RNA: sok antitoxin (CssrC)
Organism: Yersinia mollaretii
RNA sequence: GGGUGCUUGAAGCUGUCUGCUUUAAGUGCUUGCAUCAGGCUGAGAGUAGGCAGAGAAAAGCCCCGUAUCAAUGUUAAUCAAUACGAGGCCCUCUGUAAUGCACGACAACAUUACGGUAGCCUUUUACCCGCCGAAAGGCAAGGAGGCUGAAGAUG
Number, nucleotide and partner (000 for none) at each position: 001g064002g063003g062004u000005g061006c060007u059008u058009g000010a000011a000012g000013c053014u052015g051016u050017c049018u048019g047020c046021u045022u044023u043024a000025a000026g040027u000028g000029c000030u000031u000032g000033c039034a000035u000036c000037a000038g000039g033040c026041u000042g000043a023044g022045a021046g020047u019048a018049g017050g016051c015052a014053g013054a000055g000056a000057a000058a008059a007060g006061c005062c003063c002064c001065g084066u083067a082068u081069c000070a078071a000072u000073g000074u000075u000076a000077a000078u070079c000080a000081a068082u067083a066084c065085g123086a122087g121088g120089c119090c000091c000092u000093c116094u115095g114096u113097a112098a111099u110100g109101c000102a000103c000104g000105a000106c000107a000108a000109c100110a099111u098112u097113a096114c095115g094116g093117u000118a000119g089120c088121c087122u086123u085124u000125u000126a000127c146128c145129c000130g000131c142132c000133g000134a000135a000136a000137g000138g000139c000140a000141a000142g131143g000144a000145g128146g127147c000148u000149g000150a000151a000152g000153a000154u000155g000